[Rfam]
RNA sequence: CGUCCCGGGGGCGGACGAUGCUUCUUUUGGUGAAGUACUGGGAGAAAGAACUCUUGCCAAUCCCCUCCAGCCUCCCGUUCGGCGGCCGGUCACCCACACGGGUGAAUUCGCCAACUGGGCUGGAUUUGGGGGUGGUUGUCUGGCAUAUGCUCGCCCCGACAACCAGACAUGAGACGGCCCCCGCCGGGACUGCGAAUCCCGAACGAGGGCCUGACCAACGAGGAAGUAAGCCCUUCCCC
Dot-bracket structure: ......(..(......((((.......................................................))))..........((((((....)))))).............(.(((...........................))).)....................(((((.((..((((.......))))...)).)))))....)..)..(((((......)))))..
Numbered sequence: 001c002g003u004c005c006c007g008g009g010g011g012c013g014g015a016c017g018a019u020g021c022u023u024c025u026u027u028u029g030g031u032g033a034a035g036u037a038c039u040g041g042g043a044g045a046a047a048g049a050a051c052u053c054u055u056g057c058c059a060a061u062c063c064c065c066u067c068c069a070g071c072c073u074c075c076c077g078u079u080c081g082g083c084g085g086c087c088g089g090u091c092a093c094c095c096a097c098a099c100g101g102g103u104g105a106a107u108u109c110g111c112c113a114a115c116u117g118g119g120c121u122g123g124a125u126u127u128g129g130g131g132g133u134g135g136u137u138g139u140c141u142g143g144c145a146u147a148u149g150c151u152c153g154c155c156c157c158g159a160c161a162a163c164c165a166g167a168c169a170u171g172a173g174a175c176g177g178c179c180c181c182c183g184c185c186g187g188g189a190c191u192g193c194g195a196a197u198c199c200c201g202a203a204c205g206a207g208g209g210c211c212u213g214a215c216c217a218a219c220g221a222g223g224a225a226g227u228a229a230g231c232c233c234u235u236c237c238c239c
Stems, first nucleotide, its partner, number of pairs: 007219001010216001017079004090105006119155001121153003176211005182205002186200004222237005